[Rfam]
RNA sequence: CAUGCAGCGUACACCGUUCUUCUUCGCAUUCUUUUUUACCUUCCCCGUGACCGGGAGGCGUUUCGUCGUAUAAGAAAGAAUGCGAAGACGAACAAUAAGGCCUCCCAAACGGGAGGCCUUUUUUAU
Numbered sequence: 001c002a003u004g005c006a007g008c009g010u011a012c013a014c015c016g017u018u019c020u021u022c023u024u025c026g027c028a029u030u031c032u033u034u035u036u037u038a039c040c041u042u043c044c045c046c047g048u049g050a051c052c053g054g055g056a057g058g059c060g061u062u063u064c065g066u067c068g069u070a071u072a073a074g075a076a077a078g079a080a081u082g083c084g085a086a087g088a089c090g091a092a093c094a095a096u097a098a099g100g101c102c103u104c105c106c107a108a109a110c111g112g113g114a115g116g117c118c119u120u121u122u123u124u125a126u
Stems, first nucleotide, its partner, number of pairs: 016093004021088014036073003042056004057067004097120010
RNA: Phenylalanine leader peptide